RNA sequence: CUUUGGAUACUAACGGCGGAAAACUCGCACGUGUCCUCGUCAACUUCACGAUUUCACGGCGAGUGUUCCCACGUUAUUUCCAAUU
Numbered sequence: 001c002u003u004u005g006g007a008u009a010c011u012a013a014c015g016g017c018g019g020a021a022a023a024c025u026c027g028c029a030c031g032u033g034u035c036c037u038c039g040u041c042a043a044c045u046u047c048a049c050g051a052u053u054u055c056a057c058g059g060c061g062a063g064u065g066u067u068c069c070c071a072c073g074u075u076a077u078u079u080c081c082a083a084u085u
Stems, first nucleotide, its partner, number of pairs: 003083005011076005018069004023064006031057003037051004
The record is an 85-nucleotide RNA sequence from Schmidtea mediterranea, which matches "mir-2147 microRNA precursor family" in Rfam. Rfam links the family to the GO terms miRNA-mediated post-transcriptional gene silencing and RISC complex.